[Rfam]
RNA: permuted transfer-messenger RNA
Organism: Ancylobacter pratisalsi
RNA sequence: GGCGAUAAAUGGUUACCGUAAUAAACCUUUCGGACCCGGGGGCAGUACCCGGCGCCUCCACCAAAGCCCAUCCCGCUCUCUUCAGUUCGGCGGGGUAGGUUCCGGCGGGGGCGAAACAGGAUCGACGAGGGCGUAAAGGGUCUUCUUUCGCUCGGCAUGGUACCGCCGUCAUCGGACCAAACAUAUAGUUGCCAACGACAACUAUGCUCCGGUUGCUCAGGCCGCGUGA
Numbered sequence: 001g002g003c004g005a006u007a008a009a010u011g012g013u014u015a016c017c018g019u020a021a022u023a024a025a026c027c028u029u030u031c032g033g034a035c036c037c038g039g040g041g042g043c044a045g046u047a048c049c050c051g052g053c054g055c056c057u058c059c060a061c062c063a064a065a066g067c068c069c070a071u072c073c074c075g076c077u078c079u080c081u082u083c084a085g086u087u088c089g090g091c092g093g094g095g096u097a098g099g100u101u102c103c104g105g106c107g108g109g110g111g112c113g114a115a116a117c118a119g120g121a122u123c124g125a126c127g128a129g130g131g132c133g134u135a136a137a138g139g140g141u142c143u144u145c146u147u148u149c150g151c152u153c154g155g156c157a158u159g160g161u162a163c164c165g166c167c168g169u170c171a172u173c174g175g176a177c178c179a180a181a182c183a184u185a186u187a188g189u190u191g192c193c194a195a196c197g198a199c200a201a202c203u204a205u206g207c208u209c210c211g212g213u214u215g216c217u218c219a220g221g222c223c224g225c226g227u228g229a
Stems, first nucleotide, its partner, number of pairs: 001152005015141003026131003030128003036052005053113007153168004
Dot-bracket structure: (((((.........(((........(((.(((...(((((.......)))))(((((((...............................................)))))))............)))))).......)))......)))))((((........)))).............................................................